[Rfam]
RNA: Molybdenum/Tungsten riboswitch aptamer (Moco RNA motif)
RNA sequence: UAUGGAAAGACAAUCCGAACUGACUAACCUCGUUUUUUUAAUGGUUUUUCAGUCGAUAGAGGAUGGUUGGAAACGGCCAUGCUUACCAGUGUGUAAAGGAUGGUGGCUUCAUAAAAU
Number, nucleotide and partner (000 for none) at each position: 001u000002a000003u111004g110005g000006a108007a000008a000009g000010a000011c103012a000013a101014u100015c099016c098017g000018a000019a053020c052021u051022g050023a049024c000025u000026a046027a045028c044029c043030u000031c000032g000033u040034u000035u000036u000037u000038u000039u000040a033041a000042u000043g029044g028045u027046u026047u000048u000049u023050c022051a021052g020053u019054c000055g000056a000057u000058a000059g084060a083061g082062g000063a080064u079065g078066g077067u076068u075069g074070g000071a000072a000073a000074c069075g068076g067077c066078c065079a064080u063081g000082c061083u060084u059085a094086c093087c000088a000089g000090u000091g000092u000093g086094u085095a000096a000097a000098g016099g015100a014101u013102g000103g011104u000105g000106g000107c000108u006109u000110c004111a003112u000113a000114a000115a000116a000117u000